A member of the RNA family "Burkholderia RNA 14" from Diaphorobacter sp. HDW4B, 173 nucleotides long. About the family: Co-purified with Hfq, expression confirmed by Northern blot. Putative functional homologue of PA-SraF. Overlaps coding sequence. NCBI's taxonomy places the organism under Bacteria, Pseudomonadota, Burkholderiales, Comamonadaceae, Diaphorobacter. The match comes from Rfam's covariance-model search (60 bits). Gene Ontology term of the family: protein binding. The literature on the family includes a 2013 paper in Genomics by Ramos et al., "Experimental identification of small non-coding regulatory RNAs in the opportunistic human pathogen Burkholderia cenocepacia J2315".
RNA sequence: GUGGGCGUGGUCACGGUCGAGCUGCAGAACGUGCCCGUGGUCUCCGAUCUGCCGGGUCGUCUGGAAGCUUCCCGCAUUGCGCAGGUUCGUGCCCGCGCUGCUGGCAUCGUGCAAAAGCGCAGCUUCCAGGAAGGCUCGAACGUGAAGGCCGGUCAGGUGCUGUUCCAGAUCGA
Number, nucleotide and partner (000 for none) at each position: 001g000002u000003g000004g053005g052006c051007g050008u047009g000010g045011u000012c000013a041014c040015g000016g038017u000018c037019g036020a000021g034022c033023u031024g030025c000026a000027g000028a000029a000030c024031g023032u000033g022034c021035c000036c019037g018038u016039g000040g014041u013042c000043u000044c000045c010046g000047a008048u000049c000050u007051g006052c005053c004054g000055g150056g149057u148058c147059g143060u142061c000062u000063g000064g000065a000066a136067g135068c134069u000070u000071c000072c133073c000074g000075c130076a000077u000078u000079g092080c091081g090082c089083a000084g000085g000086u000087u000088c000089g082090u081091g080092c079093c000094c000095g120096c000097g118098c000099u116100g000101c000102u114103g000104g112105c111106a110107u000108c000109g000110u106111g105112c104113a000114a102115a000116a099117g000118c097119g000120c095121a000122g000123c000124u000125u000126c000127c000128a000129g000130g075131a000132a000133g072134g068135c067136u066137c000138g000139a000140a000141c000142g060143u059144g000145a000146a000147g058148g057149c056150c055151g000152g000153u000154c000155a000156g000157g000158u000159g000160c168161u167162g000163u000164u000165c000166c000167a161168g160169a000170u000171c000172g000173a000